[Rfam]
Nucleotides: 103
Base pairs, nucleotide, nucleotide: 006091008089009088010087011053012052013051014050016047017040018039019038020037021036022035023034024033025032059084060083061082065078066077067076068075
Number, partner (000 for none) and nucleotide at each position: 001000u002000g003000c004000a005000u006091a007000c008089g009088c010087u011053a012052g013051g014050g015000g016047u017040c018039c019038u020037g021036c022035g023034c024033a025032u026000g027000g028000c029000g030000a031000c032025a033024u034023g035022c036021g037020c038019g039018g040017g041000u042000g043000a044000g045000a046000a047016a048000u049000a050014c051013c052012c053011u054000c055000c056000g057000a058000a059084c060083c061082u062000g063000a064000u065078c066077u067076g068075g069000a070000u071000a072000a073000u074000g075068c076067c077066a078065g079000c080000g081000a082061a083060g084059g085000g086000a087010a088009g089008c090000u091006u092000u093000u094000g095000g096000a097000u098000c099000c100000g101000c102000c103000a

Shown here is a 103-nucleotide sequence from Pseudoduganella armeniaca, a member of the family "TPP riboswitch aptamer (THI element)". The source organism's lineage runs through Bacteria, Pseudomonadota, Betaproteobacteria, Burkholderiales and Pseudoduganella. Gene Ontology term of the family: thiamine pyrophosphate binding.